This 159-nucleotide RNA belongs to the Rfam family "DUF2800 RNA".
[Rfam]
RNA sequence: CAGCUGUAUAUUGCACCGAUUGAUCAACGAUGGCUCAACGAUGUACGGCAGAAAAAUCAAAUACUACCGGCUGACUAUUGAGCGGAAGGCUGCAGAUCGGAAUGAAGGAAUCUUCAUGAAGACUGUGGUUAGUUUUUUAUGCUUUUUGUCGCCUUACAA
Numbered sequence: 001c002a003g004c005u006g007u008a009u010a011u012u013g014c015a016c017c018g019a020u021u022g023a024u025c026a027a028c029g030a031u032g033g034c035u036c037a038a039c040g041a042u043g044u045a046c047g048g049c050a051g052a053a054a055a056a057u058c059a060a061a062u063a064c065u066a067c068c069g070g071c072u073g074a075c076u077a078u079u080g081a082g083c084g085g086a087a088g089g090c091u092g093c094a095g096a097u098c099g100g101a102a103u104g105a106a107g108g109a110a111u112c113u114u115c116a117u118g119a120a121g122a123c124u125g126u127g128g129u130u131a132g133u134u135u136u137u138u139a140u141g142c143u144u145u146u147u148g149u150c151g152c153c154u155u156a157c158a159a
Base pairs, nucleotide, nucleotide: 001051003049004048005047007045008044009043010042011041012040013039014032015031017029018028033083034082035081036080037079038078069154070153072151073150074149089129090128091127092126093125102117103116104115105114106113
Annotation
The sequence is in the family's curated seed alignment.